[Rfam]
Nucleotides: 239
Base pairs, nucleotide, nucleotide: 057087058086059085099197101195102194103193117188119186222238223237224236225235226234
Number, partner (000 for none) and nucleotide at each position: 001000a002000u003000g004000a005000a006000g007000c008000c009000u010000u011000u012000u013000a014000c015000u016000g017000a018000u019000g020000a021000u022000a023000g024000a025000a026000u027000g028000u029000u030000c031000a032000u033000g034000g035000g036000u037000u038000c039000u040000a041000c042000a043000a044000a045000g046000c047000a048000u049000g050000g051000g052000a053000c054000c055000a056000g057087g058086g059085g060000a061000a062000g063000a064000g065000g066000u067000u068000c069000g070000a071000c072000a073000c074000c075000c076000c077000c078000a079000c080000a081000c082000u083000g084000c085059u086058c087057u088000a089000g090000a091000u092000u093000c094000u095000u096000a097000a098000c099197u100000c101195u102194g103193c104000u105000g106000a107000u108000g109000c110000u111000u112000u113000u114000a115000g116000c117188c118000a119186u120000u121000g122000c123000g124000u125000c126000c127000a128000c129000u130000a131000a132000c133000u134000g135000g136000a137000g138000c139000g140000g141000c142000a143000c144000g145000c146000g147000g148000u149000a150000a151000a152000g153000c154000a155000c156000u157000c158000c159000g160000g161000g162000a163000u164000a165000g166000u167000a168000g169000a170000g171000c172000a173000g174000u175000g176000c177000u178000u179000u180000u181000g182000g183000c184000u185000g186119a187000a188117g189000c190000g191000c192000g193103g194102c195101a196000a197099a198000u199000c200000g201000g202000c203000a204000a205000g206000u207000c208000a209000c210000a211000g212000a213000a214000c215000g216000g217000c218000a219000a220000u221000g222238g223237a224236c225235u226234c227000g228000g229000c230000u231000c232000a233000c234226g235225a236224g237223u238222c239000c